A member of the RNA family "c-di-AMP riboswitch aptamer (ydaO/yuaA leader)" from Weizmannia acidilactici, 144 nucleotides long. Gene Ontology terms of the family: regulation of gene expression and cyclic-di-AMP binding. It scores 101 bits against the family's covariance model. The pairing is the family consensus, mapped onto this sequence.

[Rfam]
RNA sequence: AUAACUGGACCGCUUAGUCCGGAAACGGAGCGGGGGAACCAUGUUGCGGCACUGCGCCGCUUUGGGGUGAAUCCUUUCGAAGGUAGGGCCACUCUUAUGUCCGAACCCGACAGCUAACCUCGUCAGCGUGAUAAGAGAGGAUGU
Numbered sequence: 001a002u003a004a005c006u007g008g009a010c011c012g013c014u015u016a017g018u019c020c021g022g023a024a025a026c027g028g029a030g031c032g033g034g035g036g037a038a039c040c041a042u043g044u045u046g047c048g049g050c051a052c053u054g055c056g057c058c059g060c061u062u063u064g065g066g067g068u069g070a071a072u073c074c075u076u077u078c079g080a081a082g083g084u085a086g087g088g089c090c091a092c093u094c095u096u097a098u099g100u101c102c103g104a105a106c107c108c109g110a111c112a113g114c115u116a117a118c119c120u121c122g123u124c125a126g127c128g129u130g131a132u133a134a135g136a137g138a139g140g141a142u143g144u
Stems, first nucleotide, its partner, number of pairs: 011128004018029003030123006040064002065108003073083004086102004
NCBI's taxonomy places the organism under Bacteria, Bacilli, Caryophanales, Bacillaceae, Heyndrickxia.